[Rfam]
RNA sequence: GCAAUGGACAGCUAGGGUUCCGGUUCGCUGUUGCGGAUGUCUGGUCCGAGAGCAGUCGACCUCGCAAGAGGUUACACGGCGGGAGAAAAGCCCGGGAGAU
Numbered sequence: 001g002c003a004a005u006g007g008a009c010a011g012c013u014a015g016g017g018u019u020c021c022g023g024u025u026c027g028c029u030g031u032u033g034c035g036g037a038u039g040u041c042u043g044g045u046c047c048g049a050g051a052g053c054a055g056u057c058g059a060c061c062u063c064g065c066a067a068g069a070g071g072u073u074a075c076a077c078g079g080c081g082g083g084a085g086a087a088a089a090g091c092c093c094g095g096g097a098g099a100u
Base pairs, nucleotide, nucleotide: 007057008056009055011053012052015047016046020044021043022041023038024037025036026035027034028033058073059072060071061070062069063068075095077098081093082092083091
Overview: Guanidine-I riboswitch aptamer: a 100-nucleotide RNA from Herbaspirillum seropedicae. Rfam links the family to the GO term regulation of gene expression.